RNA: transfer-messenger RNA
RNA sequence: GGGGCUGAUCGGUUUCGACUUCGCGCAUCGAAUCAAGGGAAGCGUGCCGGUGCAGGCAAAGACCACCGUAAGCGUCGUUGCAAACCAAUUAAGCGCCGAUUCCAAUCAGCGCGAUUACGCUCUCGCUGCCUAAGCGAAGCUGAUCCGUCAGACCGGGAGUGCCCUCGACCCGGACCCUGGCGUCAUCUAGAGGGACAAACCGUUAAGUCCGGUCGCGGGAUUUAGCGGGACAUCAAACAGCGACUGGGAUCGUCAUCACGGCUUGUUCGCGAGACCGAGAGAUCCAAGUAGAGGCAUAGCGAACUGCGCACGGAGAAGCCUUGAGGGAAUGCCGUAGGACCCGGGUUCAAUUCCCGGCAGCUCCACAA
Numbered sequence: 001g002g003g004g005c006u007g008a009u010c011g012g013u014u015u016c017g018a019c020u021u022c023g024c025g026c027a028u029c030g031a032a033u034c035a036a037g038g039g040a041a042g043c044g045u046g047c048c049g050g051u052g053c054a055g056g057c058a059a060a061g062a063c064c065a066c067c068g069u070a071a072g073c074g075u076c077g078u079u080g081c082a083a084a085c086c087a088a089u090u091a092a093g094c095g096c097c098g099a100u101u102c103c104a105a106u107c108a109g110c111g112c113g114a115u116u117a118c119g120c121u122c123u124c125g126c127u128g129c130c131u132a133a134g135c136g137a138a139g140c141u142g143a144u145c146c147g148u149c150a151g152a153c154c155g156g157g158a159g160u161g162c163c164c165u166c167g168a169c170c171c172g173g174a175c176c177c178u179g180g181c182g183u184c185a186u187c188u189a190g191a192g193g194g195a196c197a198a199a200c201c202g203u204u205a206a207g208u209c210c211g212g213u214c215g216c217g218g219g220a221u222u223u224a225g226c227g228g229g230a231c232a233u234c235a236a237a238c239a240g241c242g243a244c245u246g247g248g249a250u251c252g253u254c255a256u257c258a259c260g261g262c263u264u265g266u267u268c269g270c271g272a273g274a275c276c277g278a279g280a281g282a283u284c285c286a287a288g289u290a291g292a293g294g295c296a297u298a299g300c301g302a303a304c305u306g307c308g309c310a311c312g313g314a315g316a317a318g319c320c321u322u323g324a325g326g327g328a329a330u331g332c333c334g335u336a337g338g339a340c341c342c343g344g345g346u347u348c349a350a351u352u353c354c355c356g357g358c359a360g361c362u363c364c365a366c367a368a
Stems, first nucleotide, its partner, number of pairs: 001364007019337002022334002025332004033324006043312005048068005056081004061076001121143002125140003129136001146182006153173005162194005200228009211245006247285005253280002256277001260276002265304004273297001341357005